Background: Shown here is a 178-nucleotide sequence from Bacteroides nordii, a member of the family "Bacteroidales-1 6S-Bacteroidales RNA suggested". It scores 175 bits against the family's covariance model. The base pairs follow the family's consensus structure, which is taken from published work. Rfam describes the family as follows. Bacteroidales-1 was first reported in a comparative genomics-based approach of genome and metagenome sequences from Weinberg et al. 2010 In a high-resolution transcriptome map study of Bacteroides thetaiotaomicron, Ryan et al. 2020 report this sRNA as 6S RNA homologue of Bacteroides, in the study they obtain evidence of small product RNAs (pRNAs) related to 6S function.
RNA sequence: AGCCGUAUCGACUUGAUCGGGAAACUCUUCAAAUUAAUCUGAUAAACCGAGAACGCUUCAGCUCUCAAUGGCGGGCCACAUCCUUCGGGACAGCUUAAUGUCGGUGGAUUACAAAGGGGGCGAGCACUCAAAUCUUGUUCUAUCAGAGUUUCAUCACAUCGUCGGUGCGGCUUUUUUA
Numbered sequence: 001a002g003c004c005g006u007a008u009c010g011a012c013u014u015g016a017u018c019g020g021g022a023a024a025c026u027c028u029u030c031a032a033a034u035u036a037a038u039c040u041g042a043u044a045a046a047c048c049g050a051g052a053a054c055g056c057u058u059c060a061g062c063u064c065u066c067a068a069u070g071g072c073g074g075g076c077c078a079c080a081u082c083c084u085u086c087g088g089g090a091c092a093g094c095u096u097a098a099u100g101u102c103g104g105u106g107g108a109u110u111a112c113a114a115a116g117g118g119g120g121c122g123a124g125c126a127c128u129c130a131a132a133u134c135u136u137g138u139u140c141u142a143u144c145a146g147a148g149u150u151u152c153a154u155c156a157c158a159u160c161g162u163c164g165g166u167g168c169g170g171c172u173u174u175u176u177u178a
Base pairs, nucleotide, nucleotide: 055125056124057123059122061121062120063119064118065117066116069113070112076107077106078105079104081090082089083088093101094100